[Rfam]
This 101-nucleotide RNA from Ferrimonas aestuarii belongs to the Rfam family "Alpha operon ribosome binding site". The family's consensus secondary structure is taken from published work. About the family: The bacterial alpha operon ribosome binding site is surrounded by this complex pseudoknotted structure. The organism belongs to Ferrimonas, within Bacteria.
RNA sequence: ACUAGUCGAUUGUUGGGUAUCCUACCGGGCUUUUCGCAAUUGACUCACUGGAAUUGAGGAGUGCUAUAGUGGCCCGUAUCGCUGGCAUUAACAUUCCUGAG
Numbered sequence: 001a002c003u004a005g006u007c008g009a010u011u012g013u014u015g016g017g018u019a020u021c022c023u024a025c026c027g028g029g030c031u032u033u034u035c036g037c038a039a040u041u042g043a044c045u046c047a048c049u050g051g052a053a054u055u056g057a058g059g060a061g062u063g064c065u066a067u068a069g070u071g072g073c074c075c076g077u078a079u080c081g082c083u084g085g086c087a088u089u090a091a092c093a094u095u096c097c098u099g100a101g
Stems, first nucleotide, its partner, number of pairs: 004045010021085002026076004034100002